[Rfam]
RNA sequence: CUUGAUCGACCCCAACCACAACGGCCGCUCGCGGUCCUGGCCGUAGGUGGCCAGCAGUGCCUGCGCUUC
Numbered sequence: 001c002u003u004g005a006u007c008g009a010c011c012c013c014a015a016c017c018a019c020a021a022c023g024g025c026c027g028c029u030c031g032c033g034g035u036c037c038u039g040g041c042c043g044u045a046g047g048u049g050g051c052c053a054g055c056a057g058u059g060c061c062u063g064c065g066c067u068u069c
Base pairs, nucleotide, nucleotide: 016024017023028065030063032059033058037054038053039052041050042049043048
Shown here is a 69-nucleotide RNA sequence from Amycolatopsis sp. CA-230715, a member of the family "ASpks TB sRNA".
It is annotated as an antisense RNA.
The base pairs follow the family's consensus structure, which is taken from published work.
Rfam 15.1 lists 9,052 matches to the family in 683 species.